This 140-nucleotide RNA sequence from Corynebacterium timonense belongs to the Rfam family "c-di-AMP riboswitch aptamer (ydaO/yuaA leader)". The source organism's lineage runs through Bacteria, Bacillati, Actinomycetota, Actinomycetes and Corynebacterium.

[Rfam]
RNA sequence: AUAAACCAGACGUUAUUUUACCAGGGCGGGAGCGGGGAACCCACCGCGCUUUCGCGCACGGGGUGAAGCCGCGCACCGCGCGGCCUGGCACCUCCGCCAGAACCCGACAGCUAACUUCGCAGGCGAGAACAAGAGAGGAC
Numbered sequence: 001a002u003a004a005a006c007c008a009g010a011c012g013u014u015a016u017u018u019u020a021c022c023a024g025g026g027c028g029g030g031a032g033c034g035g036g037g038a039a040c041c042c043a044c045c046g047c048g049c050u051u052u053c054g055c056g057c058a059c060g061g062g063g064u065g066a067a068g069c070c071g072c073g074c075a076c077c078g079c080g081c082g083g084c085c086u087g088g089c090a091c092c093u094c095c096g097c098c099a100g101a102a103c104c105c106g107a108c109a110g111c112u113a114a115c116u117u118c119g120c121a122g123g124c125g126a127g128a129a130c131a132a133g134a135g136a137g138g139a140c
Stems, first nucleotide, its partner, number of pairs: 006030002032120006042060001061105003069083004086099004